[Rfam]
RNA sequence: CACAGACCCCCGGGGAGCGCAGCAAGCGCUGAGAGUGCGGAGAUUCCGCAGACCCGAUGUACCUGAUCCGGUUAGCACCGGCGUAGGGAGCAGGGCGCCGCAGCGCAU
Numbered sequence: 001c002a003c004a005g006a007c008c009c010c011c012g013g014g015g016a017g018c019g020c021a022g023c024a025a026g027c028g029c030u031g032a033g034a035g036u037g038c039g040g041a042g043a044u045u046c047c048g049c050a051g052a053c054c055c056g057a058u059g060u061a062c063c064u065g066a067u068c069c070g071g072u073u074a075g076c077a078c079c080g081g082c083g084u085a086g087g088g089a090g091c092a093g094g095g096c097g098c099c100g101c102a103g104c105g106c107a108u
Stems, first nucleotide, its partner, number of pairs: 007095003011056004017029004036050005062087004068081004
The record is a 108-nucleotide RNA from Epidermidibacterium keratini, which matches "TPP riboswitch aptamer (THI element)" in Rfam. The organism belongs to Epidermidibacterium, within Bacteria. The family's consensus secondary structure is taken from published work.